[Rfam]
RNA: BsrG
RNA sequence: UAACAGAUCGGCUUGCGGGGCGGCCGGCAUUCCUCCAAAGGGAGGUGAUGCCGUGGAAGUAUACCAGACUUUGAUGCUGAUGAUUUCAUUUGCAACAUUAGUUGUGUUAAUACUUUCAUUCCAUAAACGGAAAUAGACCGCCUCACACCAAAGGUUCGGUCUAUUCCGCACUUUUAAAGCCGUCCGCUCUUUAAGCGGCUGUUGCAUUGGAGUCAUGCUACUAACAUGACUC
Numbered sequence: 001u002a003a004c005a006g007a008u009c010g011g012c013u014u015g016c017g018g019g020g021c022g023g024c025c026g027g028c029a030u031u032c033c034u035c036c037a038a039a040g041g042g043a044g045g046u047g048a049u050g051c052c053g054u055g056g057a058a059g060u061a062u063a064c065c066a067g068a069c070u071u072u073g074a075u076g077c078u079g080a081u082g083a084u085u086u087c088a089u090u091u092g093c094a095a096c097a098u099u100a101g102u103u104g105u106g107u108u109a110a111u112a113c114u115u116u117c118a119u120u121c122c123a124u125a126a127a128c129g130g131a132a133a134u135a136g137a138c139c140g141c142c143u144c145a146c147a148c149c150a151a152a153g154g155u156u157c158g159g160u161c162u163a164u165u166c167c168g169c170a171c172u173u174u175u176a177a178a179g180c181c182g183u184c185c186g187c188u189c190u191u192u193a194a195g196c197g198g199c200u201g202u203u204g205c206a207u208u209g210g211a212g213u214c215a216u217g218c219u220a221c222u223a224a225c226a227u228g229a230c231u232c
Stems, first nucleotide, its partner, number of pairs: 001204004006199001009182005014147002017144005022138001024136001028047002030044005055117007069082001094107001157168003184198004210232008219223001